[Rfam]
RNA sequence: UAAUAUAUUGCGCUUAAUCGAACAGAACGGGGGAACCAAUUUCUGGGGUGAAUCCUUAUUAGCAAAUGGAUGCCGACAAUCCGGCGAUGAAUUCAGGCAGUGAAUCGGACGUUGCUUGAAUGGCAUACGUGGGCAUCACAUUUCUAAUAUGGUAGGGUCAACUCUUUCGAUCCGAAUCCGGCAGCUAACCUCGUAAGCGUUGAAAGAGAGGGUGG
Dot-bracket structure: ..........((((...((.....))((((((....((.....))(((.....((.((((((.................................................................................)))))).))..((((...........))))...))).........)))))).))))................